This 109-nucleotide RNA sequence from Croceimicrobium hydrocarbonivorans belongs to the Rfam family "SAM riboswitch aptamer (S box leader)". The literature on the family includes a 2010 paper in J Mol Biol by Lu et al., "SAM recognition and conformational switching mechanism in the Bacillus subtilis yitJ S box/SAM-I riboswitch". It scores 90 bits against the family's covariance model.
[Rfam]
RNA sequence: UGCUUAUCCAGAAAGGUGGAGGGUCAGGCCCUGUGAAACCUUAGCAACCUGCCGUUUUCAAAUGCGGAAAGGUGCUAAUUCCUACCACAGAAAUGUGGAAAGAUAAGUA
Numbered sequence: 001u002g003c004u005u006a007u008c009c010a011g012a013a014a015g016g017u018g019g020a021g022g023g024u025c026a027g028g029c030c031c032u033g034u035g036a037a038a039c040c041u042u043a044g045c046a047a048c049c050u051g052c053c054g055u056u057u058u059c060a061a062a063u064g065c066g067g068a069a070a071g072g073u074g075c076u077a078a079u080u081c082c083u084a085c086c087a088c089a090g091a092a093a094u095g096u097g098g099a100a101a102g103a104u105a106a107g108u109a
Stems, first nucleotide, its partner, number of pairs: 001109008013042005021031003026083003043076004048072002050068001052066001080101001085098005